Shown here is an 88-nucleotide RNA from Lathyrus oleraceus, a member of the family "mir-395 microRNA precursor family".
Rfam describes the family as follows. mir-395 was identified in both Arabidopsis thaliana and Oryza sativa computationally and was later experimentally verified. mir-395 is thought to target mRNAs coding for ATP sulphurylases. The mature sequence is excised from the 3' arm of the hairpin.
Its family is annotated with miRNA-mediated post-transcriptional gene silencing and RISC complex in the Gene Ontology.
[Rfam]
RNA sequence: UUGUAUCUUAGAGUUCCUUUGAACGCUUCAUGCAUGAGACUAUCUAUUGGGUCUUAAAUGAAGUGUUUGGGGGAACUCUUGGAUUCAU
Numbered sequence: 001u002u003g004u005a006u007c008u009u010a011g012a013g014u015u016c017c018u019u020u021g022a023a024c025g026c027u028u029c030a031u032g033c034a035u036g037a038g039a040c041u042a043u044c045u046a047u048u049g050g051g052u053c054u055u056a057a058a059u060g061a062a063g064u065g066u067u068u069g070g071g072g073g074a075a076c077u078c079u080u081g082g083a084u085u086c087a088u
Stems, first nucleotide, its partner, number of pairs: 005084004011078010022068002024065008034055001
Dot-bracket structure: ....((((..((((((((((.((((((((((..(....................)..)))))))).))))))))))))..))))....
Overview
It scores 68 bits against the family's covariance model.